Rfam assigns this 140-nucleotide sequence from Bacillus sp. FJAT-27231 to the family "c-di-AMP riboswitch aptamer (ydaO/yuaA leader)".
For this family Rfam cites "New RNA motifs suggest an expanded scope for riboswitches in bacterial genetic control" (Barrick et al., Proc Natl Acad Sci U S A, 2004).
The base pairs follow the family's consensus structure.
The source organism's lineage runs through Bacteria, Bacilli, Caryophanales, Bacillaceae and Bacillus.
RNA sequence: CUUAUAUAAUUGCUUAAUCCUUAAGGAGUGGGGGACCCAUUUUGUGCAUCGUCACUGGGGGUGAAUCCUUCAUAAGAAGGCAGGGCUACUCUCAAAGCCCGAAUCCGACAGCUAACCUCAUAAGCGUCUAGGGAGGAGGU
Numbered sequence: 001c002u003u004a005u006a007u008a009a010u011u012g013c014u015u016a017a018u019c020c021u022u023a024a025g026g027a028g029u030g031g032g033g034g035a036c037c038c039a040u041u042u043u044g045u046g047c048a049u050c051g052u053c054a055c056u057g058g059g060g061g062u063g064a065a066u067c068c069u070u071c072a073u074a075a076g077a078a079g080g081c082a083g084g085g086c087u088a089c090u091c092u093c094a095a096a097g098c099c100c101g102a103a104u105c106c107g108a109c110a111g112c113u114a115a116c117c118u119c120a121u122a123a124g125c126g127u128c129u130a131g132g133g134a135g136g137a138g139g140u
Base pairs, nucleotide, nucleotide: 011126012125013124014123018027019026020025028121029120030119031118032117033116038058059106060105061104067080068079069078070077083100084099085098086097